[Rfam]
RNA sequence: GAGCGAUCGUAAAUAGCAGUCGAUAUAUACCAAAGGAUAUGGCUUGGCGUUUCUACCCGGCACCGUAAAUUGCUGGACUAUCGAUGGGAAAUUCCCCGCG
Numbered sequence: 001g002a003g004c005g006a007u008c009g010u011a012a013a014u015a016g017c018a019g020u021c022g023a024u025a026u027a028u029a030c031c032a033a034a035g036g037a038u039a040u041g042g043c044u045u046g047g048c049g050u051u052u053c054u055a056c057c058c059g060g061c062a063c064c065g066u067a068a069a070u071u072g073c074u075g076g077a078c079u080a081u082c083g084a085u086g087g088g089a090a091a092u093u094c095c096c097c098g099c100g
Base pairs, nucleotide, nucleotide: 019085020084021083022082023081024080025079030047031046032045034044035043057076058075059074060073061072062071
A member of the RNA family "Purine riboswitch aptamer" from Firmicutes bacterium CAG:103, 100 nucleotides long.
The match comes from Rfam's covariance-model search (55 bits).